[Rfam]
RNA: U4 spliceosomal RNA
Organism: Cebus imitator
RNA sequence: AGCUCUGCACAGUAGCAGUAUCAUAGCCAAUGAGGUUUAUCCAAGGUGUGAUUAUUGCUAAUGGAAAACUUUACCCAAUACCCCGUCAUGACUUGACUUGACUUUACUUGAAAUAUAGUCGGCAUUGGCGAUUUUUGGCAGUCUCUACAGGGA
Numbered sequence: 001a002g003c004u005c006u007g008c009a010c011a012g013u014a015g016c017a018g019u020a021u022c023a024u025a026g027c028c029a030a031u032g033a034g035g036u037u038u039a040u041c042c043a044a045g046g047u048g049u050g051a052u053u054a055u056u057g058c059u060a061a062u063g064g065a066a067a068a069c070u071u072u073a074c075c076c077a078a079u080a081c082c083c084c085g086u087c088a089u090g091a092c093u094u095g096a097c098u099u100g101a102c103u104u105u106a107c108u109u110g111a112a113a114u115a116u117a118g119u120c121g122g123c124a125u126u127g128g129c130g131a132u133u134u135u136u137g138g139c140a141g142u143c144u145c146u147a148c149a150g151g152g153a
Base pairs, nucleotide, nucleotide: 020052021051022050023049024048026047027046028045034042035041085129086128087127088125089124090123092121095120096119097118098117142153143152144151145150